[Rfam]
RNA sequence: GGGGAGCAUCCAAAAGUUGAGAUGCAACCUGAUACACUCUUCCUACAGCAAAACCUCUGCCCUUUCCUGUUUGUAGUAUUUGAGCAAGUACUGCAAGUCUCAGAUUGUCAGAGACAUGA
Dot-bracket structure: (((..(((((..........)))))..))).........................(((..........((((((((.(((......))).))))))))...........))).......
The family of this 119-nucleotide sequence from Rhamnella rubrinervis is "Small nucleolar RNA snoR104".
It is annotated as an H/ACA-box small nucleolar RNA.
A search with the family's covariance model found it, with a score of 100 bits.
The source organism's lineage runs through Eukaryota, Mesangiospermae, eudicotyledons, Rhamnaceae and Rhamnella.